[Rfam]
Rfam assigns this 386-nucleotide RNA from a Candidatus Hydrogenedentota bacterium to the family "Bacterial RNase P class A". About the family: Ribonuclease P (RNase P) is a ubiquitous endoribonuclease, found in archaea, bacteria and eukarya as well as chloroplasts and mitochondria. Its family is annotated with ribonuclease P activity, dimeric ribonuclease P complex and tRNA processing in the Gene Ontology.

RNA sequence: UGAGUAGGCCGGACGGCCGCGGCGCACUUCGGGUGCGUCGAGGAAAGUCCGAGCUCCACAGGGCAGGGUGCUUGGUAACGCCAAGGCGGGGCAACCCGACGGAAAGUGGCACAGAAAACACACGGCCCAAGCCGCGCUAUGCGUGGCCUCACGCGGCGCGUGGCCGGCAAAGGUGAAAAGGUGCGGUAAGAGCGCACCAGCGGCCUGGCGACAGGCCGGCUUGCCAAACCCCACCCGGAGAAAGUCCAAAUAGGGGAGCGAUGGGGUGGCCCGCCCCGCUCCCGGGUAGGACGCUCGAGGCGCGCGGCGACGCGCGUCCCAGAUGAAUGGCCGUCUCGGCGCUCUCGGGCGCUAGACAGAACUCGGCUUACAGGCCUGCUCACGUU
Numbered sequence: 001u002g003a004g005u006a007g008g009c010c011g012g013a014c015g016g017c018c019g020c021g022g023c024g025c026a027c028u029u030c031g032g033g034u035g036c037g038u039c040g041a042g043g044a045a046a047g048u049c050c051g052a053g054c055u056c057c058a059c060a061g062g063g064c065a066g067g068g069u070g071c072u073u074g075g076u077a078a079c080g081c082c083a084a085g086g087c088g089g090g091g092c093a094a095c096c097c098g099a100c101g102g103a104a105a106g107u108g109g110c111a112c113a114g115a116a117a118a119c120a121c122a123c124g125g126c127c128c129a130a131g132c133c134g135c136g137c138u139a140u141g142c143g144u145g146g147c148c149u150c151a152c153g154c155g156g157c158g159c160g161u162g163g164c165c166g167g168c169a170a171a172g173g174u175g176a177a178a179a180g181g182u183g184c185g186g187u188a189a190g191a192g193c194g195c196a197c198c199a200g201c202g203g204c205c206u207g208g209c210g211a212c213a214g215g216c217c218g219g220c221u222u223g224c225c226a227a228a229c230c231c232c233a234c235c236c237g238g239a240g241a242a243a244g245u246c247c248a249a250a251u252a253g254g255g256g257a258g259c260g261a262u263g264g265g266g267u268g269g270c271c272c273g274c275c276c277c278g279c280u281c282c283c284g285g286g287u288a289g290g291a292c293g294c295u296c297g298a299g300g301c302g303c304g305c306g307g308c309g310a311c312g313c314g315c316g317u318c319c320c321a322g323a324u325g326a327a328u329g330g331c332c333g334u335c336u337c338g339g340c341g342c343u344c345u346c347g348g349g350c351g352c353u354a355g356a357c358a359g360a361a362c363u364c365g366g367c368u369u370a371c372a373g374g375c376c377u378g379c380u381c382a383c384g385u386u
Base pairs, nucleotide, nucleotide: 001382002381003380004379005378006377007376008375009374010373011371012335013334014333015332016331017330018329020040021039022038023037024036025035026034027033028032045369046368047367049366050365051364052363053362054240055239056238057237061272062271063270064269066236067235068234069233070232071085072084073083074082075081086100087098088097089096090095101231102230106229107228108225109224110223123172125168126167127166131164132163133162134161135160136159137158180198181197182196183195184194185193200220201218202217203216204215205214206213207212244292245291246290247289254283255282256281257280258279259278263277264276265275266274267273299318300317301316302315303314304313305312306311